[Rfam]
A member of the RNA family "Small nucleolar RNA U2-19" from Sciurus carolinensis, 80 nucleotides long. Its family is annotated with RNA processing and nucleolus in the Gene Ontology. The match comes from Rfam's covariance-model search (88 bits). Rfam classes the family as a C/D-box small nucleolar RNA.
RNA sequence: GAUCAAUGAUGAAAAUAGCCAAAUCUGAGCAUCAGAAAACCUUCCAGUCAAUCUGAUGCAUGAUCUGUUGUGUUCUGAGA
Numbered sequence: 001g002a003u004c005a006a007u008g009a010u011g012a013a014a015a016u017a018g019c020c021a022a023a024u025c026u027g028a029g030c031a032u033c034a035g036a037a038a039a040c041c042u043u044c045c046a047g048u049c050a051a052u053c054u055g056a057u058g059c060a061u062g063a064u065c066u067g068u069u070g071u072g073u074u075c076u077g078a079g080a
Stems, first nucleotide, its partner, number of pairs: 029059005039048002

For this family Rfam cites "Guide RNAs with 5' Caps and Novel Box C/D snoRNA-like Domains for Modification of snRNAs in Metazoa" (Tycowski et al., Curr Biol, 2004).